The family of this 74-nucleotide RNA from Parvimonas micra is "tRNA". The match comes from Rfam's covariance-model search (66 bits). Rfam classes the family as a transfer RNA. Pairs were carried over by alignment from the consensus structure, which is taken from published work.

[Rfam]
RNA sequence: UGGGGUAUAGCCAAGUCGGUAAGGCACUAGACUUUGACUCUAGCAUUCCGCAGGUUCGAGUCCUGCUACCCCAG
Numbered sequence: 001u002g003g004g005g006u007a008u009a010g011c012c013a014a015g016u017c018g019g020u021a022a023g024g025c026a027c028u029a030g031a032c033u034u035u036g037a038c039u040c041u042a043g044c045a046u047u048c049c050g051c052a053g054g055u056u057c058g059a060g061u062c063c064u065g066c067u068a069c070c071c072c073a074g
Stems, first nucleotide, its partner, number of pairs: 001073007010025003027043005050066005
Dot-bracket structure: (((((((..(((..........))).(((((.......)))))......(((((.......)))))))))))).